[Rfam]
RNA sequence: UCACAAGUUCAAGGCAUAGCAGAAGUGCUCAUGGUGCAGCCUGUCAGAUUCUAACAAAUCUGUAAAAUUUGUU
Numbered sequence: 001u002c003a004c005a006a007g008u009u010c011a012a013g014g015c016a017u018a019g020c021a022g023a024a025g026u027g028c029u030c031a032u033g034g035u036g037c038a039g040c041c042u043g044u045c046a047g048a049u050u051c052u053a054a055c056a057a058a059u060c061u062g063u064a065a066a067a068u069u070u071g072u073u
Base pairs, nucleotide, nucleotide: 013041014040015039018073019072020071021070022069023068025037026036027035045062046061047060048059049058050057
Notes
The record is a 73-nucleotide RNA sequence from Alligator sinensis, which matches "Mammalian CPEB3 ribozyme" in Rfam. Rfam links the family to the GO term RNA nuclease activity. The family's consensus secondary structure is taken from published work.